[Rfam]
RNA sequence: GUCUGGCGGAAGCAGCACAUAUCAUACUGGCAAUGCACAGAGAACUACCAGUAAUGAUGUGCUGCUACGGCCUGAC
Number, nucleotide and partner (000 for none) at each position: 001g076002u075003c074004u000005g072006g071007c070008g000009g000010a000011a066012g065013c064014a063015g062016c061017a060018c059019a000020u056021a000022u054023c000024a000025u053026a052027c051028u050029g049030g048031c000032a000033a000034u000035g000036c000037a000038c000039a000040g000041a000042g000043a000044a000045c000046u000047a000048c030049c029050a028051g027052u026053a025054a022055u000056g020057a000058u000059g018060u017061g016062c015063u014064g013065c012066u011067a000068c000069g000070g007071c006072c005073u000074g003075a002076c001
Shown here is a 76-nucleotide RNA sequence from Dicentrarchus labrax, a member of the family "mir-16 microRNA precursor family". The family is grouped with related families in Rfam's "mir-15 clan". A reference for the family is Jin et al. (2020), "Structural Basis for pri-miRNA Recognition by Drosha", Mol Cell. It scores 36 bits against the family's covariance model. Its family is annotated with RISC complex and miRNA-mediated post-transcriptional gene silencing in the Gene Ontology. Rfam 15.1 lists 4,705 matches to the family in 758 species. The organism belongs to Dicentrarchus, within Eukaryota.